The family of this 114-nucleotide sequence from Huiozyma naganishii is "Small nucleolar RNA snR48". The match comes from Rfam's covariance-model search (97 bits). The family is grouped with related families in Rfam's "SNORD60 clan". NCBI's taxonomy places the organism under Eukaryota, Opisthokonta, Dikarya, Ascomycota, Huiozyma naganishii. The literature on the family includes a 1999 paper in Science by Lowe and Eddy, "A computational screen for methylation guide snoRNAs in yeast".
RNA sequence: UGAAAAUGAUGAUCACACACCUACCUAUAUGUUUUUUCUGGCAUCUCUAAUGUUAGGGCGGGUCAGUUUAAGUACUAUCUGCUCGAUGAAUACAACUCGUGACAAUAUCUGACC
Numbered sequence: 001u002g003a004a005a006a007u008g009a010u011g012a013u014c015a016c017a018c019a020c021c022u023a024c025c026u027a028u029a030u031g032u033u034u035u036u037u038c039u040g041g042c043a044u045c046u047c048u049a050a051u052g053u054u055a056g057g058g059c060g061g062g063u064c065a066g067u068u069u070a071a072g073u074a075c076u077a078u079c080u081g082c083u084c085g086a087u088g089a090a091u092a093c094a095a096c097u098c099g100u101g102a103c104a105a106u107a108u109c110u111g112a113c114c
Stems, first nucleotide, its partner, number of pairs: 057083004
Dot-bracket structure: ........................................................((((...................))))...............................